[Rfam]
RNA: mir-101 microRNA precursor family
Organism: Callorhinchus milii
RNA sequence: UGCUGUGUCUCAGUUCUCACAGUGCUGAUGCUGUCCAUUGUAAAGGUACAGUACUGUGAUAACUGAAAGUCGGCA
Dot-bracket structure: ..........(((((.(((((((((.(.((((............))))).))))))))).)))))..........